Small nucleolar RNA SNORA24: a 127-nucleotide RNA from Atractosteus spatula. Rfam classes the family as an H/ACA-box small nucleolar RNA. Its family is annotated with RNA processing and nucleolus in the Gene Ontology. The match comes from Rfam's covariance-model search (41 bits). Taxonomically the source falls in Atractosteus (Eukaryota, Bilateria, Holostei, Lepisosteidae).
RNA sequence: UUCCACGUUACCAUGGGAACUGUGUUCAUAAUGGCAGAUUCCCUUCCUAGGCGUGGGACAGCAAGUCCUUGUUCCUGACAAGUUUUUAUCAUGUUGUGUUGUCAUGUGAAGUGGCAGGAGAACAAGG
Dot-bracket structure: .((((((.......((((.((((..........))))..))))........))))))............((((.(((.((...(...(.((.....)).)...).......)).).))..))))...
Numbered sequence: 001u002u003c004c005a006c007g008u009u010a011c012c013a014u015g016g017g018a019a020c021u022g023u024g025u026u027c028a029u030a031a032u033g034g035c036a037g038a039u040u041c042c043c044u045u046c047c048u049a050g051g052c053g054u055g056g057g058a059c060a061g062c063a064a065g066u067c068c069u070u071g072u073u074c075c076u077g078a079c080a081a082g083u084u085u086u087u088a089u090c091a092u093g094u095u096g097u098g099u100u101g102u103c104a105u106g107u108g109a110a111g112u113g114g115c116a117g118g119a120g121a122a123c124a125a126g127g
Stems, first nucleotide, its partner, number of pairs: 002057006015043004020037004070124004075118002077115001079113002084104001088100001090098002